This 537-nucleotide part of an RNA from Thermogutta terrifontis belongs to the Rfam family "Bacterial large subunit ribosomal RNA". The base pairs follow the family's consensus structure, which is taken from published work. The match comes from Rfam's covariance-model search (2771 bits). Taxonomically the source falls in Thermogutta (Bacteria, Pseudomonadati, Pirellulales, Thermoguttaceae).
RNA sequence: UCCUAAGGGCGUACGGUGGAUGUCUUGGCGUCGAGAGGCGAUGAAGGGCGUGGAAGACUGCGAUAAGCCCGGGGGAGCUGUCAAACAAGCGAUGAUCCCGGGAUCCCCGAAUGAUCACACGCUGAACCCAUAGGCGUGUGAGGCGAUACCCGGCGAACUGAAACAUCUUAGUAGCCGGAGGAAAAGAAAGAAAACUCGAUUCCCUAAGUAGCGGCGAGCGAAAGGGGAACAGCCCAAACCGUGGGGAUUUUCCCUGCGGGGUUGUAGGGCCUCCACAUGGGUGAUGUGAACGGCUAGCUGAACCAUCCUGGAAAGGUGGACCACAGAGGGUGACAGUCCCGUAAGCGAAAGCUGGCUCACAGCCCGGAGGUACCUGAGUAGGUCGGGGCACGUGGAACCCCGACUGAAGCUACGGGGACCAUCCCGUAAGGCUAAAUACUCCUCGACGACCGAUAGUGGACCAGUAGGGCGACCGAAAGAUGAAAAGAACCCCCGUGAGGGGAGUGAAAGGAGACCCUGAAACCGUAUGCCUACAAG
Numbered sequence: 001u002c003c004u005a006a007g008g009g010c011g012u013a014c015g016g017u018g019g020a021u022g023u024c025u026u027g028g029c030g031u032c033g034a035g036a037g038g039c040g041a042u043g044a045a046g047g048g049c050g051u052g053g054a055a056g057a058c059u060g061c062g063a064u065a066a067g068c069c070c071g072g073g074g075g076a077g078c079u080g081u082c083a084a085a086c087a088a089g090c091g092a093u094g095a096u097c098c099c100g101g102g103a104u105c106c107c108c109g110a111a112u113g114a115u116c117a118c119a120c121g122c123u124g125a126a127c128c129c130a131u132a133g134g135c136g137u138g139u140g141a142g143g144c145g146a147u148a149c150c151c152g153g154c155g156a157a158c159u160g161a162a163a164c165a166u167c168u169u170a171g172u173a174g175c176c177g178g179a180g181g182a183a184a185a186g187a188a189a190g191a192a193a194a195c196u197c198g199a200u201u202c203c204c205u206a207a208g209u210a211g212c213g214g215c216g217a218g219c220g221a222a223a224g225g226g227g228a229a230c231a232g233c234c235c236a237a238a239c240c241g242u243g244g245g246g247a248u249u250u251u252c253c254c255u256g257c258g259g260g261g262u263u264g265u266a267g268g269g270c271c272u273c274c275a276c277a278u279g280g281g282u283g284a285u286g287u288g289a290a291c292g293g294c295u296a297g298c299u300g301a302a303c304c305a306u307c308c309u310g311g312a313a314a315g316g317u318g319g320a321c322c323a324c325a326g327a328g329g330g331u332g333a334c335a336g337u338c339c340c341g342u343a344a345g346c347g348a349a350a351g352c353u354g355g356c357u358c359a360c361a362g363c364c365c366g367g368a369g370g371u372a373c374c375u376g377a378g379u380a381g382g383u384c385g386g387g388g389c390a391c392g393u394g395g396a397a398c399c400c401c402g403a404c405u406g407a408a409g410c411u412a413c414g415g416g417g418a419c420c421a422u423c424c425c426g427u428a429a430g431g432c433u434a435a436a437u438a439c440u441c442c443u444c445g446a447c448g449a450c451c452g453a454u455a456g457u458g459g460a461c462c463a464g465u466a467g468g469g470c471g472a473c474c475g476a477a478a479g480a481u482g483a484a485a486a487g488a489a490c491c492c493c494c495g496u497g498a499g500g501g502g503a504g505u506g507a508a509a510g511g512a513g514a515c516c517c518u519g520a521a522a523c524c525g526u527a528u529g530c531c532u533a534c535a536a537g
Stems, first nucleotide, its partner, number of pairs: 007532010022517001023480002027451002029448007036440002038144002046108003049062003068102007077090003115141009149180001150178005160167002190197002200436001201228005211219002231433004239259007266375003270370005283363001285361005291354005297346003303319004308315001322326001328340003381405008412427005467474002490502004